Shown here is a 145-nucleotide RNA from Bos grunniens, a member of the family "Small nucleolar RNA SNORA79". The source organism's lineage runs through Eukaryota, Eutheria, Boreoeutheria, Laurasiatheria and Bos. The match comes from Rfam's covariance-model search (62 bits).
RNA sequence: UAAUGGCUGUUUCUCUUGUGGCUGGAGCCUUGGGCCGUGGGAUUUUAGUCUGUCAUACGUCUAAGCUGGCUUGUCUUCUCUCAGGACACCACAGGGAUGGCUUGGCUGUUUGUUAGUGUGUUUUGACUUGCAGAAUCACACAAUU
Numbered sequence: 001u002a003a004u005g006g007c008u009g010u011u012u013c014u015c016u017u018g019u020g021g022c023u024g025g026a027g028c029c030u031u032g033g034g035c036c037g038u039g040g041g042a043u044u045u046u047a048g049u050c051u052g053u054c055a056u057a058c059g060u061c062u063a064a065g066c067u068g069g070c071u072u073g074u075c076u077u078c079u080c081u082c083a084g085g086a087c088a089c090c091a092c093a094g095g096g097a098u099g100g101c102u103u104g105g106c107u108g109u110u111u112g113u114u115a116g117u118g119u120g121u122u123u124u125g126a127c128u129u130g131c132a133g134a135a136u137c138a139c140a141c142a143a144u145u
Stems, first nucleotide, its partner, number of pairs: 001055001003053004008048001014042005020036004068137002071134002081126005086119004095111005
The family's consensus secondary structure was predicted with RNAalifold. Its family is annotated with nucleolus and RNA processing in the Gene Ontology. The family has 25 seed sequences and 944 matches in Rfam 15.1. For this family Rfam cites "A computational screen for mammalian pseudouridylation guide H/ACA RNAs" (Schattner et al., RNA, 2006). Rfam's curators write: ACA65 (SNORA79) is a member of the H/ACA class of snoRNAs that guide the sites of modification of uridines to pseudouridines.